This 130-nucleotide RNA from Mustela putorius belongs to the Rfam family "U4 spliceosomal RNA". The family's consensus secondary structure is taken from published work. Taxonomically the source falls in Mustela putorius (Eukaryota, Boreoeutheria, Mustelinae, Mustela). It is annotated as a spliceosomal small nuclear RNA. U4 small nuclear RNA (U4 snRNA) is a component of the major U2-dependent spliceosome.
[Rfam]
RNA sequence: AGCAUUCAGUGGCAGUAUCGUAGCCAAUGAGGUUUAUCCAAGGCACAAUUAUUGCUAAUUGAAAGAAAAAGAAGAGAAAAAUAAUGGGUAUUACUAUAACUGUUCAACAUUCUUCUGUUGGUCCUAGCCA
Numbered sequence: 001a002g003c004a005u006u007c008a009g010u011g012g013c014a015g016u017a018u019c020g021u022a023g024c025c026a027a028u029g030a031g032g033u034u035u036a037u038c039c040a041a042g043g044c045a046c047a048a049u050u051a052u053u054g055c056u057a058a059u060u061g062a063a064a065g066a067a068a069a070a071g072a073a074g075a076g077a078a079a080a081a082u083a084a085u086g087g088g089u090a091u092u093a094c095u096a097u098a099a100c101u102g103u104u105c106a107a108c109a110u111u112c113u114u115c116u117g118u119u120g121g122u123c124c125u126a127g128c129c130a
Base pairs, nucleotide, nucleotide: 017049018048020046021045023044024043025042031039032038083104084103085102086101087100089098090097091096119130120129121128122127